Source information:
The family of this 457-nucleotide RNA sequence from Elsinoe australis is "RNase MRP". The source organism's lineage runs through Eukaryota, saccharomyceta, dothideomyceta, Myriangiales and Elsinoe. RNase MRP is an enzymatically active ribonucleoprotein with two distinct roles in eukaryotes.
[Rfam]
RNA sequence: UUCUCGCUCGAAGAAUCGCAAUCAAGGCUUCCACCAGAAUGGCUUGCCAUUCGAUACAAAUUGCCUUGGGAGAAAGUCCCCGGACAGCUCUGUUAUGCAGAGACAGCUGAAAAGCGCCGCCAUAGAAGCAUCUCUGCGGCUCAAGCCUGUCGCACCUCCAUCCCUCCCGGUCCUCCUGGGCUAUUUGCACUCCACAGCCAGAAUUCCUUGGCUUACUCUCACUGUAUCGGAGAGCUAUGUCUCAAGGCAGGAUGAUGAUACGAGUCCGCUCUCUGGUAUGAUGGUGUUCUGGCCUCAGGAGGAAACUGUGGAGGAGGUUCUAGGUUUGUAGUAAUACUCACUGGGAGCAAGUUGGAUCCAGGUGCGGCCAGGUGCUCUUUCGUCGAGGUCGACAGUUAUGCGAUUGCCUUUUGUCUUCGACAAAGGUAACUCGAUGGGGCUUAUUCUCGAGGCGAGA
Numbered sequence: 001u002u003c004u005c006g007c008u009c010g011a012a013g014a015a016u017c018g019c020a021a022u023c024a025a026g027g028c029u030u031c032c033a034c035c036a037g038a039a040u041g042g043c044u045u046g047c048c049a050u051u052c053g054a055u056a057c058a059a060a061u062u063g064c065c066u067u068g069g070g071a072g073a074a075a076g077u078c079c080c081c082g083g084a085c086a087g088c089u090c091u092g093u094u095a096u097g098c099a100g101a102g103a104c105a106g107c108u109g110a111a112a113a114g115c116g117c118c119g120c121c122a123u124a125g126a127a128g129c130a131u132c133u134c135u136g137c138g139g140c141u142c143a144a145g146c147c148u149g150u151c152g153c154a155c156c157u158c159c160a161u162c163c164c165u166c167c168c169g170g171u172c173c174u175c176c177u178g179g180g181c182u183a184u185u186u187g188c189a190c191u192c193c194a195c196a197g198c199c200a201g202a203a204u205u206c207c208u209u210g211g212c213u214u215a216c217u218c219u220c221a222c223u224g225u226a227u228c229g230g231a232g233a234g235c236u237a238u239g240u241c242u243c244a245a246g247g248c249a250g251g252a253u254g255a256u257g258a259u260a261c262g263a264g265u266c267c268g269c270u271c272u273c274u275g276g277u278a279u280g281a282u283g284g285u286g287u288u289c290u291g292g293c294c295u296c297a298g299g300a301g302g303a304a305a306c307u308g309u310g311g312a313g314g315a316g317g318u319u320c321u322a323g324g325u326u327u328g329u330a331g332u333a334a335u336a337c338u339c340a341c342u343g344g345g346a347g348c349a350a351g352u353u354g355g356a357u358c359c360a361g362g363u364g365c366g367g368c369c370a371g372g373u374g375c376u377c378u379u380u381c382g383u384c385g386a387g388g389u390c391g392a393c394a395g396u397u398a399u400g401c402g403a404u405u406g407c408c409u410u411u412u413g414u415c416u417u418c419g420a421c422a423a424a425g426g427u428a429a430c431u432c433g434a435u436g437g438g439g440c441u442u443a444u445u446c447u448c449g450a451g452g453c454g455a456g457a
Stems, first nucleotide, its partner, number of pairs: 002457006008450004014405006022070001023068006037052006074442003078439004097107002280377002288372007296364001298359003346353002407426005